[Rfam]
RNA sequence: GUCGGGAGUGGGCUAAUAAAAGACCCGCAAGGGGAAUACGUCCGGCCCGUCUCUGGUGGGUUUCUUAGCUCCCGACUCCAAUCA
Numbered sequence: 001g002u003c004g005g006g007a008g009u010g011g012g013c014u015a016a017u018a019a020a021a022g023a024c025c026c027g028c029a030a031g032g033g034g035a036a037u038a039c040g041u042c043c044g045g046c047c048c049g050u051c052u053c054u055g056g057u058g059g060g061u062u063u064c065u066u067a068g069c070u071c072c073c074g075a076c077u078c079c080a081a082u083c084a
Stems, first nucleotide, its partner, number of pairs: 001076008010043004014038002024033003044062006
The record is an 84-nucleotide RNA sequence from Pseudomonas panipatensis, which matches "sRNA-Xcc1" in Rfam. Rfam 15.1 lists 421 matches to the family in 299 species. NCBI's taxonomy places the organism under Bacteria, Pseudomonadati, Pseudomonadota, Pseudomonadales, Pseudomonas. By type it is a small RNA.